[Rfam]
RNA sequence: GGGGGCGACUGGUUUCGACAGGGUAAUUCUGAGAUGGGCAGCAGGUCGUGGUCUCCUCGCCACGUAAAACAGGGGUACAGUCAAAAUUGAAUUGACGACAACGUUCUUUCUUUUGAGCCUUCCAUGGCUCUCGCCGCUUAAUUAAGCCUGGCGCGUCUAUCCGGGGAACACUCCCGCCCCCGGUGUGACGUCAUCUAGGGAGAUGCGCUUGGGGACGUAGUCGGUAUGCCGCAAGCAAAGACUGAACCGACUGGGAUACUGCGCGCUGGUCAGCGUGUGUACAGCAUCCAAGAUUAAAUCGCUGACUGAACCUGGAGACACCUGUCAGGGAGUUGCUUUGGACCGGAGUUCGAUUCUCCGCGCCUCCACCA
Numbered sequence: 001g002g003g004g005g006c007g008a009c010u011g012g013u014u015u016c017g018a019c020a021g022g023g024u025a026a027u028u029c030u031g032a033g034a035u036g037g038g039c040a041g042c043a044g045g046u047c048g049u050g051g052u053c054u055c056c057u058c059g060c061c062a063c064g065u066a067a068a069a070c071a072g073g074g075g076u077a078c079a080g081u082c083a084a085a086a087u088u089g090a091a092u093u094g095a096c097g098a099c100a101a102c103g104u105u106c107u108u109u110c111u112u113u114u115g116a117g118c119c120u121u122c123c124a125u126g127g128c129u130c131u132c133g134c135c136g137c138u139u140a141a142u143u144a145a146g147c148c149u150g151g152c153g154c155g156u157c158u159a160u161c162c163g164g165g166g167a168a169c170a171c172u173c174c175c176g177c178c179c180c181c182g183g184u185g186u187g188a189c190g191u192c193a194u195c196u197a198g199g200g201a202g203a204u205g206c207g208c209u210u211g212g213g214g215a216c217g218u219a220g221u222c223g224g225u226a227u228g229c230c231g232c233a234a235g236c237a238a239a240g241a242c243u244g245a246a247c248c249g250a251c252u253g254g255g256a257u258a259c260u261g262c263g264c265g266c267u268g269g270u271c272a273g274c275g276u277g278u279g280u281a282c283a284g285c286a287u288c289c290a291a292g293a294u295u296a297a298a299u300c301g302c303u304g305a306c307u308g309a310a311c312c313u314g315g316a317g318a319c320a321c322c323u324g325u326c327a328g329g330g331a332g333u334u335g336c337u338u339u340g341g342a343c344c345g346g347a348g349u350u351c352g353a354u355u356c357u358c359c360g361c362g363c364c365u366c367c368a369c370c371a
Stems, first nucleotide, its partner, number of pairs: 001367007019340012033326006042314005047064005052077001054075004132153005154190004161183006171202005207236005213230002219252006254289004259284003263280001264277003268306001270304001273300001344360005
Shown here is a 371-nucleotide RNA sequence from Coriobacteriaceae bacterium BV3Ac1, a member of the family "transfer-messenger RNA". The base pairs follow the family's consensus structure, which is taken from published work. NCBI's taxonomy places the organism under Bacteria, Bacillati, Actinomycetota, Coriobacteriia, Coriobacteriaceae. It scores 147 bits against the family's covariance model. The literature on the family includes a 1996 paper in RNA by Williams and Bartel, "Phylogenetic analysis of tmRNA secondary structure".